A member of the RNA family "U7 small nuclear RNA" from Acrocephalus arundinaceus, 61 nucleotides long. The family's consensus secondary structure was predicted with PFOLD. A search with the family's covariance model found it, with a score of 63 bits.
[Rfam]
RNA sequence: CAGUGAAUUCAGCUCUUUUAGAAUUUGUCCAGCAGGCUUUCCGCGGUGUCGGAAAGCCCCU
Numbered sequence: 001c002a003g004u005g006a007a008u009u010c011a012g013c014u015c016u017u018u019u020a021g022a023a024u025u026u027g028u029c030c031a032g033c034a035g036g037c038u039u040u041c042c043g044c045g046g047u048g049u050c051g052g053a054a055a056g057c058c059c060c061u
Stems, first nucleotide, its partner, number of pairs: 035058009